[Rfam]
RNA sequence: UGGAGCUAUCAGUUGUAACAGCAACUCCAUGUGGAUUGUGUAUCAAUUUCUAGUGGAGAGGCUGUUACUUUUGGUGGUUAC
Dot-bracket structure: ........(((...((((((((..((((((.(((...............)))))))))..))))))))...))).......

Rfam assigns this 81-nucleotide RNA sequence from Galemys pyrenaicus to the family "mir-194 microRNA precursor family". A reference for the family is Lagos-Quintana et al. (2003), "New microRNAs from mouse and human", RNA. A search with the family's covariance model found it, with a score of 84 bits. The organism belongs to Galemys, within Eukaryota.